small nucleolar RNA snoR114: a 90-nucleotide RNA sequence from Populus trichocarpa.
The base pairs follow the family's consensus structure, which was predicted with RNAalifold.

RNA sequence: GAGCUGUGAGGAUACCAGUGCUUAUUGUGAUGAUAGGGUCUAUCACUACCGUCAGAUAUUCAUCGGACGAAAAGGAGCGCAUCUGAGCUU
Numbered sequence: 001g002a003g004c005u006g007u008g009a010g011g012a013u014a015c016c017a018g019u020g021c022u023u024a025u026u027g028u029g030a031u032g033a034u035a036g037g038g039u040c041u042a043u044c045a046c047u048a049c050c051g052u053c054a055g056a057u058a059u060u061c062a063u064c065g066g067a068c069g070a071a072a073a074g075g076a077g078c079g080c081a082u083c084u085g086a087g088c089u090u
Stems, first nucleotide, its partner, number of pairs: 001090004